The record is an 85-nucleotide RNA sequence from Medicago truncatula, which matches "MIR2617 microRNA precursor family" in Rfam.

RNA sequence: AAGAAGUGUAGCAUUCCGUUUUUGUGAAUUACUCUGAUUAAAUAAAUGAAAUUUUCACGUUGGGAAAACGGGGUGUUACAUUUUA
Numbered sequence: 001a002a003g004a005a006g007u008g009u010a011g012c013a014u015u016c017c018g019u020u021u022u023u024g025u026g027a028a029u030u031a032c033u034c035u036g037a038u039u040a041a042a043u044a045a046a047u048g049a050a051a052u053u054u055u056c057a058c059g060u061u062g063g064g065a066a067a068a069c070g071g072g073g074u075g076u077u078a079c080a081u082u083u084u085a
Stems, first nucleotide, its partner, number of pairs: 003084018
The organism belongs to Medicago, within Eukaryota. Gene Ontology terms of the family: miRNA-mediated post-transcriptional gene silencing and RISC complex. The base pairs follow the family's consensus structure, which was predicted with RNAalifold.